[Rfam]
RNA sequence: UCUGCACUUCAUUGUACGUCGCUCUGGAUAAGAGUGUCUGCUAAAUGCCUUGCA
Numbered sequence: 001u002c003u004g005c006a007c008u009u010c011a012u013u014g015u016a017c018g019u020c021g022c023u024c025u026g027g028a029u030a031a032g033a034g035u036g037u038c039u040g041c042u043a044a045a046u047g048c049c050u051u052g053c054a
Stems, first nucleotide, its partner, number of pairs: 013043001014041003020036006
Rfam assigns this 54-nucleotide RNA sequence from Conger conger to the family "UnaL2 LINE 3' element". The eel long interspersed element (LINE) UnaL2 and its partner short interspersed element (SINE) share a conserved 3' tail containing a stem-loop that is critical for their retrotransposition. Presumably, the first step of retrotransposition is the recognition of their 3' tails by UnaL2-encoded reverse transcriptase. The solution structure of a 17-nucleotide RNA derived from the 3' tail of UnaL2 was determined by NMR. The match comes from Rfam's covariance-model search (58 bits). By type it is a cis-regulatory element. Pairs were carried over by alignment from the consensus structure, which is taken from published work.